[Rfam]
RNA: Small nucleolar RNA SNORA57
Organism: Varanus komodoensis
RNA sequence: CCUCCUCUUCUUGGCAGGCCCGGGUUUUGCGGUGCCCGGCUCUGUAAUGUCCGGAGGUAAAGGAAUGCCCACCCAGCGCUCUGUCUUCGGUGCCAGCAGCUUUGCCAUCUGCUGGUUCUAUCCUCAAACGCUGGGACAAAG
Numbered sequence: 001c002c003u004c005c006u007c008u009u010c011u012u013g014g015c016a017g018g019c020c021c022g023g024g025u026u027u028u029g030c031g032g033u034g035c036c037c038g039g040c041u042c043u044g045u046a047a048u049g050u051c052c053g054g055a056g057g058u059a060a061a062g063g064a065a066u067g068c069c070c071a072c073c074c075a076g077c078g079c080u081c082u083g084u085c086u087u088c089g090g091u092g093c094c095a096g097c098a099g100c101u102u103u104g105c106c107a108u109c110u111g112c113u114g115g116u117u118c119u120a121u122c123c124u125c126a127a128a129c130g131c132u133g134g135g136a137c138a139a140a141g
Stems, first nucleotide, its partner, number of pairs: 001057005015044004020039001022037004074133005093115007